[Rfam]
RNA sequence: GAUCCGAUAGUAUGGUAGAAAGGUUCAUAUAUAUAUAUUUUUUUUUACCACACUAUCUAUUAUUGUUAUUGUAUUGUAUAUUGAAGGUAGC
Numbered sequence: 001g002a003u004c005c006g007a008u009a010g011u012a013u014g015g016u017a018g019a020a021a022g023g024u025u026c027a028u029a030u031a032u033a034u035a036u037a038u039u040u041u042u043u044u045u046u047a048c049c050a051c052a053c054u055a056u057c058u059a060u061u062a063u064u065g066u067u068a069u070u071g072u073a074u075u076g077u078a079u080a081u082u083g084a085a086g087g088u089a090g091c
Base pairs, nucleotide, nucleotide: 006057007056008055009054010053011052013050014049015048016047017046018045019044020043021042022041023040